[Rfam]
RNA: PreQ1 (pre queuosine) riboswitch aptamer
RNA sequence: GCGGUGGAGGUUCUAGCUACCCUCUUUAAAAAACUAAGGAAAC
Numbered sequence: 001g002c003g004g005u006g007g008a009g010g011u012u013c014u015a016g017c018u019a020c021c022c023u024c025u026u027u028a029a030a031a032a033a034c035u036a037a038g039g040a041a042a043c
Stems, first nucleotide, its partner, number of pairs: 006025005014036002